[Rfam]
RNA sequence: GAGGUUGCUAUGAGGAUGAAAUUUAUUUUGGACUAGAGUUUCUGAUAACUGGGUUUAUACCCAUUAGUUGAAGACUCACCCUUGGCUGUCUGAGCAACUCU
Dot-bracket structure: (.((((((..............................((((...((...(((......)))..))...))))....................)))))).)